[Rfam]
RNA sequence: GUGUCACGGUCGCUGUUGACCGUUCAUAGGAACCCUGCAAUUCAAAUGCAUUGCAGCUUGUGUGGGGUUCAUAUAACGGUCAACAAAGACCCUUGACAU
Numbered sequence: 001g002u003g004u005c006a007c008g009g010u011c012g013c014u015g016u017u018g019a020c021c022g023u024u025c026a027u028a029g030g031a032a033c034c035c036u037g038c039a040a041u042u043c044a045a046a047u048g049c050a051u052u053g054c055a056g057c058u059u060g061u062g063u064g065g066g067g068u069u070c071a072u073a074u075a076a077c078g079g080u081c082a083a084c085a086a087a088g089a090c091c092c093u094u095g096a097c098a099u
Stems, first nucleotide, its partner, number of pairs: 001099006008091004014085011026074003030070010048057001

MIR2587 microRNA precursor family: a 99-nucleotide RNA from Medicago truncatula.
A reference for the family is Lelandais-Briere et al. (2009), "Genome-wide Medicago truncatula small RNA analysis revealed novel microRNAs and isoforms differentially regulated in roots and nodules", Plant Cell.
Gene Ontology terms of the family: miRNA-mediated post-transcriptional gene silencing and RISC complex.
A search with the family's covariance model found it, with a score of 84 bits.